[Rfam]
RNA: tRNA
Organism: Blautia sp. OF03-15BH
RNA sequence: UGGGCUAUCGCCAAGCGGUAAGGCACAGGACUUUGACUCCUGCAUUCGCCGGUUCGAAUCCGGCUAGCCCAG
Numbered sequence: 001u002g003g004g005c006u007a008u009c010g011c012c013a014a015g016c017g018g019u020a021a022g023g024c025a026c027a028g029g030a031c032u033u034u035g036a037c038u039c040c041u042g043c044a045u046u047c048g049c050c051g052g053u054u055c056g057a058a059u060c061c062g063g064c065u066a067g068c069c070c071a072g
Stems, first nucleotide, its partner, number of pairs: 001071007010024003026042005048064005